[Rfam]
RNA: Small nucleolar RNA SNORD66
Organism: Stegastes partitus
RNA sequence: CUCCAGUCAUGACCUCACAUUAGUGCCACGAGUCUGAGCCACUGAUCUAAGCGAUGGGAUGGUGGCACUGAGGAG
Numbered sequence: 001c002u003c004c005a006g007u008c009a010u011g012a013c014c015u016c017a018c019a020u021u022a023g024u025g026c027c028a029c030g031a032g033u034c035u036g037a038g039c040c041a042c043u044g045a046u047c048u049a050a051g052c053g054a055u056g057g058g059a060u061g062g063u064g065g066c067a068c069u070g071a072g073g074a075g
Base pairs, nucleotide, nucleotide: 001075002074003073004072